[Rfam]
mir-9223 microRNA precursor family: a 76-nucleotide RNA sequence from Myotis myotis. Gene Ontology terms of the family: miRNA-mediated post-transcriptional gene silencing and RISC complex. The source organism's lineage runs through Eukaryota, Metazoa, Deuterostomia, Theria and Myotis.
RNA sequence: GGCAUUUCUCCGGUGACACACCCCGGAACUGGGCUCCCUCCUCUCUGGUUUCAGGGUGUGUCACCCAAGAACCACC
Numbered sequence: 001g002g003c004a005u006u007u008c009u010c011c012g013g014u015g016a017c018a019c020a021c022c023c024c025g026g027a028a029c030u031g032g033g034c035u036c037c038c039u040c041c042u043c044u045c046u047g048g049u050u051u052c053a054g055g056g057u058g059u060g061u062c063a064c065c066c067a068a069g070a071a072c073c074a075c076c
Stems, first nucleotide, its partner, number of pairs: 002075001006071004012065006019058005025052009